A member of the RNA family "mir-172 microRNA precursor family" from Oryza sativa, 109 nucleotides long. Lineage of the source: Eukaryota > Euphyllophyta > Poaceae > Oryzeae > Oryza sativa. The base pairs follow the family's consensus structure, which was predicted with PFOLD. mir-172 has been experimentally verified in Arabidopsis thaliana. This family is thought to target mRNAs coding for APETALA2-like transcription factors. The mature sequence is excised from the 3' arm of the hairpin.
RNA sequence: GUGUUUGCGGGCGUGGCAUCAUCAAGAUUCACAUCCAUGCAUAUAUCACAAGACGCACAUAUACAUCCGAUUUGGCUGAGAAUCUUGAUGAUGCUGCAUCCGCAGACAA
Number, nucleotide and partner (000 for none) at each position: 001g000002u000003g000004u000005u000006u000007g000008c000009g000010g100011g099012c000013g097014u096015g095016g094017c093018a092019u091020c090021a089022u088023c087024a086025a085026g084027a083028u082029u081030c080031a000032c078033a077034u000035c000036c000037a000038u000039g000040c000041a000042u000043a000044u000045a000046u000047c000048a000049c000050a000051a000052g000053a000054c000055g000056c000057a000058c000059a000060u000061a000062u000063a000064c000065a000066u000067c000068c000069g000070a000071u000072u000073u000074g000075g000076c000077u033078g032079a000080g030081a029082a028083u027084c026085u025086u024087g023088a022089u021090g020091a019092u018093g017094c016095u015096g014097c013098a000099u011100c010101c000102g000103c000104a000105g000106a000107c000108a000109a000